[Rfam]
RNA: U12 minor spliceosomal RNA
Organism: Drosophila rhopaloa
RNA sequence: GUGCCUCAAACUAAUGAGUAAGGAAAACCAAACAGCCUUGCUAAUCGCUUGGCAGUAUUGGCUUCUAGGCAAAGGGGCGAUUUUCGUCCCUUGAAGCUCAAUUUUUGCAAGGGCACAGGUCGUCCCCUCCUUCUCCGAGUGGGUGGCGUCCGGCCAAGCGAACCGGCACCUACUUUUGUGCCCGGUAAGUGAGGCUGGAUGCCCUUC
Numbered sequence: 001g002u003g004c005c006u007c008a009a010a011c012u013a014a015u016g017a018g019u020a021a022g023g024a025a026a027a028c029c030a031a032a033c034a035g036c037c038u039u040g041c042u043a044a045u046c047g048c049u050u051g052g053c054a055g056u057a058u059u060g061g062c063u064u065c066u067a068g069g070c071a072a073a074g075g076g077g078c079g080a081u082u083u084u085c086g087u088c089c090c091u092u093g094a095a096g097c098u099c100a101a102u103u104u105u106u107g108c109a110a111g112g113g114c115a116c117a118g119g120u121c122g123u124c125c126c127c128u129c130c131u132u133c134u135c136c137g138a139g140u141g142g143g144u145g146g147c148g149u150c151c152g153g154c155c156a157a158g159c160g161a162a163c164c165g166g167c168a169c170c171u172a173c174u175u176u177u178g179u180g181c182c183c184g185g186u187a188a189g190u191g192a193g194g195c196u197g198g199a200u201g202c203c204c205u206u207c
Stems, first nucleotide, its partner, number of pairs: 004023003008019001033055001035053003040048001056096001058094003139207001141205003146202007155191002161186001163184001165182005